[Rfam]
RNA sequence: AUAUUCUUAGGCCCAAUCUUGAGGCAAAAACUGAGUAGUUGGUGAACUCGCUCUAUCUUGUUCGUUCACUCGCUACACGGUUCCUGCCCUAAGAUCGAGUCUAUGAAUAU
Numbered sequence: 001a002u003a004u005u006c007u008u009a010g011g012c013c014c015a016a017u018c019u020u021g022a023g024g025c026a027a028a029a030a031c032u033g034a035g036u037a038g039u040u041g042g043u044g045a046a047c048u049c050g051c052u053c054u055a056u057c058u059u060g061u062u063c064g065u066u067c068a069c070u071c072g073c074u075a076c077a078c079g080g081u082u083c084c085u086g087c088c089c090u091a092a093g094a095u096c097g098a099g100u101c102u103a104u105g106a107a108u109a110u
Stems, first nucleotide, its partner, number of pairs: 001110006008103005014097001016095006023088004029082005035076002

The record is a 110-nucleotide RNA from Oryza sativa, which matches "MIR1861 microRNA precursor family" in Rfam. Its family is annotated with RISC complex and miRNA-mediated post-transcriptional gene silencing in the Gene Ontology. NCBI's taxonomy places the organism under Eukaryota, Oryzoideae, Oryzeae, Oryzinae, Oryza sativa.